Small nucleolar RNA snoR145: a 161-nucleotide RNA from Rhododendron simsii. The literature on the family includes a 2009 paper in Nucleic Acids Res by Chen and Wu, "Mining small RNA sequencing data: a new approach to identify small nucleolar RNAs in Arabidopsis". The family has 19 seed sequences and 286 matches in Rfam 15.1. The source organism's lineage runs through Eukaryota, Euphyllophyta, eudicotyledons, Gunneridae and Rhododendron. Gene Ontology terms of the family: RNA processing and nucleolus. Pairs were carried over by alignment from the consensus structure, which was predicted with mfold.
RNA sequence: AUGCGAAGGUCCCAGCAGAGGGGCAAGAAUUACUCCAAAAGGAGGCCUCUCUAACACUGAAUUUCUAGCAAAUUCAUUCCUUCGCAAAUUGAUGAGCCGAAUCGUAGGAUGCCCCAAUUGCUUCUCGUUUGGGUGCGUCCGGAACCCUCGGCUACAUUUUU
Number, nucleotide and partner (000 for none) at each position: 001a000002u000003g085004c084005g083006a082007a081008g080009g079010u000011c020012c000013c018014a000015g000016c000017a000018g013019a000020g011021g000022g000023g000024c000025a000026a050027g049028a000029a000030u000031u000032a000033c044034u043035c042036c041037a000038a000039a000040a000041g036042g035043a034044g033045g000046c000047c000048u000049c027050u026051c000052u000053a000054a000055c000056a000057c000058u000059g000060a000061a000062u000063u000064u000065c000066u000067a000068g000069c000070a000071a000072a000073u000074u000075c000076a000077u000078u000079c009080c008081u007082u006083c005084g004085c003086a000087a000088a000089u000090u000091g000092a000093u000094g000095a000096g152097c151098c150099g149100a148101a000102u000103c000104g000105u000106a000107g000108g139109a138110u000111g136112c135113c133114c132115c131116a130117a129118u000119u000120g000121c000122u000123u000124c000125u000126c000127g000128u000129u117130u116131g115132g114133g113134u000135g112136c111137g000138u109139c108140c000141g000142g000143a000144a000145c000146c000147c000148u100149c099150g098151g097152c096153u000154a000155c000156a000157u000158u000159u000160u000161u000